This 392-nucleotide part of an RNA from Fusarium solani belongs to the Rfam family "Ascomycota telomerase RNA". Gene Ontology terms of the family: telomerase catalytic core complex, telomere maintenance via telomerase and telomerase activity. A reference for the family is Qi et al. (2013), "The common ancestral core of vertebrate and fungal telomerase RNAs", Nucleic Acids Res. The family is grouped with related families in Rfam's "Telomerase clan".
RNA sequence: AAUCAAACAGAAGGGGUCAUCUUGUUCGCGUCGAGUGUUUUUCAGACUGCGUUCUGUCAUGACGGCUUUCGGUGGUAUUCUGUUGGCGAAGGCAUCUAACUAUACUGGGAUUUACAGCUACUCGGGACAGUUCAGCUUUGCAUUCGCCUUGUUCCCAACGACAAAGAUCUGCAGCUAAGGUUCAAAGCAGCACCGGGACCCAUCUCGAGUUGGAGUCAAAGUUUCGUACUUGUCUGGUGUUGUGGCGGGCCUAGCCGUGGGUUGAGUCCGAGGUUGCCGGGUCGCACAGCUGGACUGAGUUGUACCGUUGGAUCUUGGACAGGCCUAGUUGGAUAGGUAGUCCUGGUUGUCCUCUCGCCAGAAAUGGUGCGGAGGGCAACCCCCCGCAGAGG
Numbered sequence: 001a002a003u004c005a006a007a008c009a010g011a012a013g014g015g016g017u018c019a020u021c022u023u024g025u026u027c028g029c030g031u032c033g034a035g036u037g038u039u040u041u042u043c044a045g046a047c048u049g050c051g052u053u054c055u056g057u058c059a060u061g062a063c064g065g066c067u068u069u070c071g072g073u074g075g076u077a078u079u080c081u082g083u084u085g086g087c088g089a090a091g092g093c094a095u096c097u098a099a100c101u102a103u104a105c106u107g108g109g110a111u112u113u114a115c116a117g118c119u120a121c122u123c124g125g126g127a128c129a130g131u132u133c134a135g136c137u138u139u140g141c142a143u144u145c146g147c148c149u150u151g152u153u154c155c156c157a158a159c160g161a162c163a164a165a166g167a168u169c170u171g172c173a174g175c176u177a178a179g180g181u182u183c184a185a186a187g188c189a190g191c192a193c194c195g196g197g198a199c200c201c202a203u204c205u206c207g208a209g210u211u212g213g214a215g216u217c218a219a220a221g222u223u224u225c226g227u228a229c230u231u232g233u234c235u236g237g238u239g240u241u242g243u244g245g246c247g248g249g250c251c252u253a254g255c256c257g258u259g260g261g262u263u264g265a266g267u268c269c270g271a272g273g274u275u276g277c278c279g280g281g282u283c284g285c286a287c288a289g290c291u292g293g294a295c296u297g298a299g300u301u302g303u304a305c306c307g308u309u310g311g312a313u314c315u316u317g318g319a320c321a322g323g324c325c326u327a328g329u330u331g332g333a334u335a336g337g338u339a340g341u342c343c344u345g346g347u348u349g350u351c352c353u354c355u356c357g358c359c360a361g362a363a364a365u366g367g368u369g370c371g372g373a374g375g376g377c378a379a380c381c382c383c384c385c386g387c388a389g390a391g392g
Stems, first nucleotide, its partner, number of pairs: 197217003200213003219231004